[Rfam]
RNA sequence: GCAGGAAGCCUGUGAUGUCUUGGCCACGAUGUCUGAACCUGGCUGAAGGAACUUCUGAAGACUCCCACCUAGGCGCUGAGGCUUCCGGGGGA
Numbered sequence: 001g002c003a004g005g006a007a008g009c010c011u012g013u014g015a016u017g018u019c020u021u022g023g024c025c026a027c028g029a030u031g032u033c034u035g036a037a038c039c040u041g042g043c044u045g046a047a048g049g050a051a052c053u054u055c056u057g058a059a060g061a062c063u064c065c066c067a068c069c070u071a072g073g074c075g076c077u078g079a080g081g082c083u084u085c086c087g088g089g090g091g092a
Stems, first nucleotide, its partner, number of pairs: 004086007
Small nucleolar RNA SNORD91 family: a 92-nucleotide RNA from Anser cygnoides. The source organism's lineage runs through Eukaryota, Bilateria, Dipnotetrapodomorpha, Archosauria and Anser. The literature on the family includes a 2001 paper in EMBO J by Huttenhofer et al., "RNomics: an experimental approach that identifies 201 candidates for novel, small, non-messenger RNAs in mouse". The match comes from Rfam's covariance-model search (54 bits). By type it is a C/D-box small nucleolar RNA.